[Rfam]
RNA sequence: UGACCACUUGCAUAUGCAAGUUAAGCCCAUACGGACAGGCGGGUCAGCUGCCGA
Number, nucleotide and partner (000 for none) at each position: 001u046002g045003a044004c043005c042006a021007c020008u019009u018010g017011c016012a000013u000014a000015u000016g011017c010018a009019a008020g007021u006022u000023a000024a000025g000026c000027c000028c000029a000030u000031a000032c000033g000034g000035a000036c000037a000038g000039g000040c000041g000042g005043g004044u003045c002046a001047g000048c000049u000050g000051c000052c000053g000054a000
Annotation
This 54-nucleotide RNA sequence belongs to the Rfam family "Streptococcus sRNA SpF59 (ldcC RNA)". The sequence is in the family's curated seed alignment. A reference for the family is Mann et al. (2012), "Control of virulence by small RNAs in Streptococcus pneumoniae", PLoS Pathog.